Shown here is a 94-nucleotide RNA from Georgenia satyanarayanai, a member of the family "SAM riboswitch aptamer (S box leader)". The match comes from Rfam's covariance-model search (49 bits).
RNA sequence: CCACCAUCCAGAGCGGCCGAGAGUCCUGGCUCGACGACGCCGCAGCAACCCCCCGGUCCACGGGUGCGGGUGCUUCCGCCAGGCCCGAUGGGAG
Numbered sequence: 001c002c003a004c005c006a007u008c009c010a011g012a013g014c015g016g017c018c019g020a021g022a023g024u025c026c027u028g029g030c031u032c033g034a035c036g037a038c039g040c041c042g043c044a045g046c047a048a049c050c051c052c053c054c055g056g057u058c059c060a061c062g063g064g065u066g067c068g069g070g071u072g073c074u075u076c077c078g079c080c081a082g083g084c085c086c087g088a089u090g091g092g093a094g
Stems, first nucleotide, its partner, number of pairs: 001094001004091005013043005021032003026082004044074004049070002051066001053064002078086001